[Rfam]
RNA: MIR7504 microRNA precursor family
RNA sequence: AAUAGGAGAAUUACAAAUCAAAAUUUUCCUCUUGAAUUUUAGCUUUUUCCUCCUGAAAAAAAAAUUCAAAUCCAACUAAACAUGCUAAAAAUCAGGAGGAAAAAUCUGAUUUGUCAUUCUCUUAUU
Numbered sequence: 001a002a003u004a005g006g007a008g009a010a011u012u013a014c015a016a017a018u019c020a021a022a023a024u025u026u027u028c029c030u031c032u033u034g035a036a037u038u039u040u041a042g043c044u045u046u047u048u049c050c051u052c053c054u055g056a057a058a059a060a061a062a063a064a065u066u067c068a069a070a071u072c073c074a075a076c077u078a079a080a081c082a083u084g085c086u087a088a089a090a091a092u093c094a095g096g097a098g099g100a101a102a103a104a105u106c107u108g109a110u111u112u113g114u115c116a117u118u119c120u121c122u123u124a125u126u
Stems, first nucleotide, its partner, number of pairs: 001126011013114008022105001024103004029098007037090003041086002045082001047080002